RNA: mir-232 microRNA precursor family
Organism: Caenorhabditis japonica
RNA sequence: GCGUGGAUCUCCGUAGUUUCGAUCGUUUUAUCCAGCGCCACAAACCGUGCGAUAAAUGCAUCUUAACUGCGGUGAUCUGCAA
Numbered sequence: 001g002c003g004u005g006g007a008u009c010u011c012c013g014u015a016g017u018u019u020c021g022a023u024c025g026u027u028u029u030a031u032c033c034a035g036c037g038c039c040a041c042a043a044a045c046c047g048u049g050c051g052a053u054a055a056a057u058g059c060a061u062c063u064u065a066a067c068u069g070c071g072g073u074g075a076u077c078u079g080c081a082a
Stems, first nucleotide, its partner, number of pairs: 003080007011072008021062003027056006033049002